A member of the RNA family "Glycine riboswitch aptamer" from Psychrilyobacter sp. S5, 101 nucleotides long. Gene Ontology term of the family: glycine biosynthetic process. Taxonomically the source falls in Psychrilyobacter (Bacteria, Fusobacteriati, Fusobacteriales, Fusobacteriaceae). The base pairs follow the family's consensus structure.

RNA sequence: GGACGAGCCUCUGGAGAGACCCAAAAUAACGGGCACCGAAGGAGCAAAACCGGUCUAUGGACUGGACAAAUCUCUCAGGUAAAAAGGACAGAGGAAGGAAA
Number, nucleotide and partner (000 for none) at each position: 001g000002g000003a000004c000005g000006a000007g000008c094009c093010u092011c091012u090013g089014g000015a000016g000017a000018g000019a000020c033021c032022c031023a000024a000025a000026a000027u000028a000029a000030c000031g022032g021033g020034c000035a080036c079037c078038g076039a075040a000041g000042g074043a073044g072045c000046a000047a000048a000049a000050c000051c000052g000053g000054u000055c000056u000057a000058u000059g000060g000061a000062c000063u000064g000065g000066a000067c000068a000069a000070a000071u000072c044073u043074c042075u039076c038077a000078g037079g036080u035081a000082a000083a000084a000085a000086g000087g000088a000089c013090a012091g011092a010093g009094g008095a000096a000097g000098g000099a000100a000101a000